[Rfam]
RNA sequence: GCCGGGGUGGCGGAACAGGUAGACGCAGUGGACUCAAAAUCCACCGGUACUUGGUACUGUGCGGGUUCGAGUCCCGCCCCCGGCA
Numbered sequence: 001g002c003c004g005g006g007g008u009g010g011c012g013g014a015a016c017a018g019g020u021a022g023a024c025g026c027a028g029u030g031g032a033c034u035c036a037a038a039a040u041c042c043a044c045c046g047g048u049a050c051u052u053g054g055u056a057c058u059g060u061g062c063g064g065g066u067u068c069g070a071g072u073c074c075c076g077c078c079c080c081c082g083g084c085a
Stems, first nucleotide, its partner, number of pairs: 001084007010026003028044005061077005
RNA: tRNA